[Rfam]
RNA sequence: AACACCCAUGCGGGAGAGCGCGGCACAAGGCCGCCGCCGAAGGAGCAACCGCCCCGGAAUCUCUCAGGCACCCGAACCGCAUGGGGCUG
Number, nucleotide and partner (000 for none) at each position: 001a000002a000003c000004a000005c000006c084007c083008a082009u081010g080011c079012g078013g077014g000015a000016g000017a000018g000019c000020g034021c033022g032023g031024c000025a000026c000027a000028a000029g000030g000031c023032c022033g021034c020035c000036g069037c068038c067039g065040a064041a000042g000043g063044a062045g061046c000047a000048a000049c057050c056051g000052c000053c000054c000055c000056g050057g049058a000059a000060u000061c045062u044063c043064u040065c039066a000067g038068g037069c036070a000071c000072c000073c000074g000075a000076a000077c013078c012079g011080c010081a009082u008083g007084g006085g000086g000087c000088u000089g000
The record is an 89-nucleotide RNA from Niveispirillum lacus, which matches "Glycine riboswitch aptamer" in Rfam. The base pairs follow the family's consensus structure.